[Rfam]
RNA sequence: AUGAAUAACCAACGGAAAAAGGCGAAAAACACGCCUUUCAAUAUG
Numbered sequence: 001a002u003g004a005a006u007a008a009c010c011a012a013c014g015g016a017a018a019a020a021g022g023c024g025a026a027a028a029a030c031a032c033g034c035c036u037u038u039c040a041a042u043a044u045g
Base pairs, nucleotide, nucleotide: 018038019037020036021035022034023033024032
Shown here is a 45-nucleotide sequence from Orthoflavivirus denguei, a member of the family "Flavivirus capsid hairpin cHP". NCBI's taxonomy places the organism under Viruses, Riboviria, Flasuviricetes, Orthoflavivirus, Dengue virus. Its family is annotated with translational initiation in the Gene Ontology. From the family's description: cHP is a conserved RNA hairpin structure identified within the capsid coding region of several Flavivirus genomes. These positive strand RNA genomes are translated as a single polypeptide and subsequently cleaved into constituent proteins, the first of which is the capsid protein. The cHP hairpin is located within the capsid coding region between two AUG start codons. The cHP cis element has been shown to direct translation start from the thermodynamically unstable first start codon. The ability of cHP to direct initiation from the first start codon is proportional to its thermodynamic stability, is position dependent, and is sequence independent. It has been demonstrated that both AUGs and the conserved cHP are necessary for efficient viral replication in human and mosquito cells. Clan: Flavivirus 5' UTR clan. The literature on the family includes a 2006 paper in J Virol by Clyde and Harris, "RNA secondary structure in the coding region of dengue virus type 2 directs translation start codon selection and is required for viral replication". The sequence is in the family's curated seed alignment.